[Rfam]
RNA: Small nucleolar RNA R64/Z200 family
RNA sequence: CUUCUGCUGUGAUGAAUUAUGAAUAAAAUUCACAUGUCAGACUUCAGAGAUUUUAAUCUAUGAGAAGAAAAUUCAUUUUUUUUCUGAGCAGAGG
Numbered sequence: 001c002u003u004c005u006g007c008u009g010u011g012a013u014g015a016a017u018u019a020u021g022a023a024u025a026a027a028a029u030u031c032a033c034a035u036g037u038c039a040g041a042c043u044u045c046a047g048a049g050a051u052u053u054u055a056a057u058c059u060a061u062g063a064g065a066a067g068a069a070a071a072u073u074c075a076u077u078u079u080u081u082u083u084c085u086g087a088g089c090a091g092a093g094g
Base pairs, nucleotide, nucleotide: 001094002093003092004091005090006089007088049058050057051056